The record is a 62-nucleotide sequence from Pan troglodytes, which matches "U7 small nuclear RNA" in Rfam.
[Rfam]
RNA sequence: AAAUGUCAGAGCUCUUUUAGAAUUUGUCUAGCAGGUUUUCCAGUUUUUACCGGAAAACCAAC
Numbered sequence: 001a002a003a004u005g006u007c008a009g010a011g012c013u014c015u016u017u018u019a020g021a022a023u024u025u026g027u028c029u030a031g032c033a034g035g036u037u038u039u040c041c042a043g044u045u046u047u048u049a050c051c052g053g054a055a056a057a058c059c060a061a062c
Stems, first nucleotide, its partner, number of pairs: 034059008043050002

About this RNA
Animal histone pre-mRNAs are spliced by a different mechanism than nuclear pre-mRNAs and self-splicing introns. This processing involves the U7 snRNP, which contains only one RNA species: U7. The 5' end of U7 RNA is thought to base-pair to a conserved spacer element downstream of the cleavage site in histone pre-mRNA. This family contains a number of annotated U7 pseudogenes. Lineage of the source: Eukaryota > Opisthokonta > Bilateria > Deuterostomia > Pan.